Rfam assigns this 68-nucleotide RNA sequence from Channa argus to the family "miR-430 microRNA precursor family". Rfam links the family to the GO terms RISC complex and miRNA-mediated post-transcriptional gene silencing. On this family, see Giraldez et al., Science 2005: "MicroRNAs regulate brain morphogenesis in zebrafish". The source organism's lineage runs through Eukaryota, Eumetazoa, Ctenosquamata, Anabantaria and Channa.

RNA sequence: AUUAUUACCCUAAAUUGAGCACUAACUUGAUGAUUAUUACAGUAAGUGCUUCUUUUAGGGCAGUUUUU
Numbered sequence: 001a002u003u004a005u006u007a008c009c010c011u012a013a014a015u016u017g018a019g020c021a022c023u024a025a026c027u028u029g030a031u032g033a034u035u036a037u038u039a040c041a042g043u044a045a046g047u048g049c050u051u052c053u054u055u056u057a058g059g060g061c062a063g064u065u066u067u068u
Stems, first nucleotide, its partner, number of pairs: 004064003008060004013055002017051007025043003